[Rfam]
RNA sequence: AGGUUAGACGUGCUGGCACCUAUUGAAGUCCAGUACUACAGUAAAUAAGGAAUUGUAUG
Numbered sequence: 001a002g003g004u005u006a007g008a009c010g011u012g013c014u015g016g017c018a019c020c021u022a023u024u025g026a027a028g029u030c031c032a033g034u035a036c037u038a039c040a041g042u043a044a045a046u047a048a049g050g051a052a053u054u055g056u057a058u059g
Stems, first nucleotide, its partner, number of pairs: 001021004010036007
This 59-nucleotide RNA belongs to the Rfam family "DUF2815 RNA".
The sequence is in the family's curated seed alignment.
It is annotated as a small RNA.